[Rfam]
RNA sequence: AAAUUAAAAACAUGAAUCGUUAUCGUUGAUAACAUCAUGCCCAGAUAGCUAUAACCUUAAAGGCUAUGUAUCCAUGUAUGGAUAGGUUAACCCAAAAGUCAGUUAAGCAUACGGCAGGCACUGACGAUUACCGUAAACGGUAAUAGU
Dot-bracket structure: ..........((((....((((((...))))))..)))).....((((((..[[[[.....)))))).((((((....))))))]]]]...............................(((....(((((((....))))))))))
Rfam assigns this 147-nucleotide RNA from Entomomonas asaccharolytica to the family "radC RNA". It is annotated as a cis-regulatory element. It scores 66 bits against the family's covariance model. Rfam 15.1 lists 500 matches to the family in 142 species.